[Rfam]
RNA: MIR530 microRNA precursor family
Organism: Salix koriyanagi
RNA sequence: CCCACCAUGUCGCCUUCAUCUGCAUUUGCACCUGCACCUUACUUGUUCCCGUCUGUUGUUUUCCGAAACCAAAAGUUCGAUGCAUUGGAACAAGCUUGAGGUGCAGGUGCAGGUGCAGGUGAAUGCCAUGUUGGU
Numbered sequence: 001c002c003c004a005c006c007a008u009g010u011c012g013c014c015u016u017c018a019u020c021u022g023c024a025u026u027u028g029c030a031c032c033u034g035c036a037c038c039u040u041a042c043u044u045g046u047u048c049c050c051g052u053c054u055g056u057u058g059u060u061u062u063c064c065g066a067a068a069c070c071a072a073a074a075g076u077u078c079g080a081u082g083c084a085u086u087g088g089a090a091c092a093a094g095c096u097u098g099a100g101g102u103g104c105a106g107g108u109g110c111a112g113g114u115g116c117a118g119g120u121g122a123a124u125g126c127c128a129u130g131u132u133g134g135u
Base pairs, nucleotide, nucleotide: 002134003133004132006130007129008128009127012126013125015123016122017121018120019119020118021117022116023115024114025113026112027111028110029109030108031107032106033105034104035103036102037101038100039099054074056072057071058070060068061067062066